[Rfam]
RNA sequence: UUGAGGCUCCAUCUACAAAUGGAUAAGACUUUACUCUUAGUCUAGGCCUAUUCCUUUAAGUAAAGGAGCAAUAAUCAACGUCUUCUUAUAUUAAGAUAUUAAGAAGGUUGGUAUUGCUCCUUU
Numbered sequence: 001u002u003g004a005g006g007c008u009c010c011a012u013c014u015a016c017a018a019a020u021g022g023a024u025a026a027g028a029c030u031u032u033a034c035u036c037u038u039a040g041u042c043u044a045g046g047c048c049u050a051u052u053c054c055u056u057u058a059a060g061u062a063a064a065g066g067a068g069c070a071a072u073a074a075u076c077a078a079c080g081u082c083u084u085c086u087u088a089u090a091u092u093a094a095g096a097u098a099u100u101a102a103g104a105a106g107g108u109u110g111g112u113a114u115u116g117c118u119c120c121u122u123u
Stems, first nucleotide, its partner, number of pairs: 008023005062123012077108001078099001080097005

This 123-nucleotide RNA from Pentadiplandra brazzeana belongs to the Rfam family "Plastid-psbA-1 3UTR RNA". The organism belongs to Pentadiplandra, within Eukaryota. The family's consensus secondary structure was predicted with LocARNA. Rfam classes the family as a cis-regulatory element. Its Rfam clan is "Plastid-psbA 3UTR RNA clan". Plastid psbA-1 is a non-coding RNA (ncRNA) present in plastids. It was identified in inverted repeat sequences in the 3 prime untranslate region (3UTR) of photosystem II quinone-binding protein (psbA).